[Rfam]
RNA sequence: GCAGGCGCAGGCAAUGGAUUCCUGCCUGGCCUCUCGCCGAACCGCCCUCACAAGGGACGAUGAUUCCUACUUGGCG
Numbered sequence: 001g002c003a004g005g006c007g008c009a010g011g012c013a014a015u016g017g018a019u020u021c022c023u024g025c026c027u028g029g030c031c032u033c034u035c036g037c038c039g040a041a042c043c044g045c046c047c048u049c050a051c052a053a054g055g056g057a058c059g060a061u062g063a064u065u066c067c068u069a070c071u072u073g074g075c076g
Base pairs, nucleotide, nucleotide: 010026011025012024013023016067017066018065020063021062045056046055047054
A member of the RNA family "Fluoride riboswitch aptamer (crcB RNA motif)" from Novosphingobium silvae, 76 nucleotides long.
Taxonomically the source falls in Novosphingobium (Bacteria, Pseudomonadati, Pseudomonadota, Sphingomonadaceae).